[Rfam]
RNA: Bacillus sRNA ncr1015
RNA sequence: AUAUAAGAUGCAAUAAAUGUGUCAUGCUAAUAAAAACAGUCGUAAACAGAUUAUAUCAUCGUGUCUGUUUAUACGCAAUAUGAAAGAACCUGGCAAAGCUGCCCAGGUUCUUUUUUGA
Numbered sequence: 001a002u003a004u005a006a007g008a009u010g011c012a013a014u015a016a017a018u019g020u021g022u023c024a025u026g027c028u029a030a031u032a033a034a035a036a037c038a039g040u041c042g043u044a045a046a047c048a049g050a051u052u053a054u055a056u057c058a059u060c061g062u063g064u065c066u067g068u069u070u071a072u073a074c075g076c077a078a079u080a081u082g083a084a085a086g087a088a089c090c091u092g093g094c095a096a097a098g099c100u101g102c103c104c105a106g107g108u109u110c111u112u113u114u115u116u117g118a
Base pairs, nucleotide, nucleotide: 032072034070035069036068037067038064041061042060082114083113084112085111086110087109088108089107090106091105092104093103